Shown here is a 77-nucleotide RNA from Parnassius apollo, a member of the family "Mammalian CPEB3 ribozyme". It scores 50 bits against the family's covariance model. The family's consensus secondary structure is taken from published work.

[Rfam]
RNA sequence: UUGAUUGACCCAUGGGUCAUUGUAGAAGCGUGCUCGUCGCGACCCCUGCCAGCCCUUUUCAGGGCUGCAAUUCUACA
Numbered sequence: 001u002u003g004a005u006u007g008a009c010c011c012a013u014g015g016g017u018c019a020u021u022g023u024a025g026a027a028g029c030g031u032g033c034u035c036g037u038c039g040c041g042a043c044c045c046c047u048g049c050c051a052g053c054c055c056u057u058u059u060c061a062g063g064g065c066u067g068c069a070a071u072u073c074u075a076c077a
Base pairs, nucleotide, nucleotide: 014045015044016043017042018041021077022076023075024074025073026072027071028040029039030038050067051066052065053064054063055062056061